[Rfam]
Description
The family of this 98-nucleotide RNA sequence from Orycteropus afer is "mir-342 microRNA precursor family". For this family Rfam cites "Identification and characteristics of cattle microRNAs by homology searching and small RNA cloning" (Long and Chen, Biochem Genet, 2009). The base pairs follow the family's consensus structure, which was predicted with RNAalifold. The source organism's lineage runs through Eukaryota, Metazoa, Dipnotetrapodomorpha, Mammalia and Orycteropus afer.

RNA sequence: GUGACUCGGGUCAAGGUGAGGGUGCUGUCUGUGAUUGAGGGACAUGGUGCGUGGGACUGUCUCGCACAGGAAUCGCACCCGUCUCCUCGGCCCGCCCA
Number, nucleotide and partner (000 for none) at each position: 001g000002u000003g000004a000005c000006u000007c000008g000009g000010g000011u000012c089013a000014a087015g086016g085017u000018g083019a082020g080021g079022g078023u077024g076025c075026u000027g000028u070029c069030u068031g067032u066033g065034a000035u000036u064037g063038a062039g061040g060041g000042a000043c000044a000045u000046g000047g000048u000049g000050c000051g000052u000053g000054g000055g000056a000057c000058u000059g000060u040061c039062u038063c037064g036065c033066a032067c031068a030069g029070g028071a000072a000073u000074c000075g025076c024077a023078c022079c021080c020081g000082u019083c018084u000085c016086c015087u014088c000089g012090g000091c000092c000093c000094g000095c000096c000097c000098a000